The family of this 160-nucleotide RNA from Macleaya cordata is "Small nucleolar RNA snoR145". The match comes from Rfam's covariance-model search (95 bits). A reference for the family is Chen and Wu (2009), "Mining small RNA sequencing data: a new approach to identify small nucleolar RNAs in Arabidopsis", Nucleic Acids Res.
RNA sequence: AGGCGAAGGUCCCAGCAGGGAGGUAUGAACUCUAUUAAUUGAGACCUCUCUAACACUAAAAUAUACCCUUCGCAGAUUGAGAUUUUAGUAUCGGUCGAUUCGUAGGACGCCCCAAAUUUCUUUGAUUUUUGGUGCGUCUUUAAAAUUCGGCUACAUUGAU
Numbered sequence: 001a002g003g004c005g006a007a008g009g010u011c012c013c014a015g016c017a018g019g020g021a022g023g024u025a026u027g028a029a030c031u032c033u034a035u036u037a038a039u040u041g042a043g044a045c046c047u048c049u050c051u052a053a054c055a056c057u058a059a060a061a062u063a064u065a066c067c068c069u070u071c072g073c074a075g076a077u078u079g080a081g082a083u084u085u086u087a088g089u090a091u092c093g094g095u096c097g098a099u100u101c102g103u104a105g106g107a108c109g110c111c112c113c114a115a116a117u118u119u120c121u122u123u124g125a126u127u128u129u130u131g132g133u134g135c136g137u138c139u140u141u142a143a144a145a146u147u148c149g150g151c152u153a154c155a156u157u158g159a160u
Base pairs, nucleotide, nucleotide: 003073004072005071006070007069008068009067011020012019013018027048030043031042032041034039094151095150096149097148098147100145106138107137109135110134112132113131114130115129116128